The record is a 73-nucleotide RNA from Parasphingopyxis marina, which matches "Makes More Granules Regulator RNA (mmgR)" in Rfam. From the family's description: SuhB later renamed mmgR (makes more granules regulator) was a putative non-coding RNA found multiple times in the Agrobacterium tumefaciens genome and related alpha-proteobacteria. The family has 87 seed sequences and 1,791 matches in Rfam 15.1. Rfam classes the family as a small RNA.
RNA sequence: AGAUCGUGCCUUUCAGGCAUCCUCUCCUAAACUUCAGGGCUGCCCCUCGGGGCGGCCCUUUUUUUGUCCGGAU
Number, nucleotide and partner (000 for none) at each position: 001a000002g000003a000004u000005c000006g000007u000008g018009c017010c016011u015012u000013u000014c000015a011016g010017g009018c008019a000020u000021c000022c000023u000024c000025u000026c000027c000028u000029a000030a000031a000032c000033u000034u000035c000036a000037g058038g057039g056040c055041u054042g053043c052044c051045c050046c000047u000048c000049g000050g045051g044052g043053c042054g041055g040056c039057c038058c037059u000060u000061u000062u000063u000064u000065u000066g000067u000068c000069c000070g000071g000072a000073u000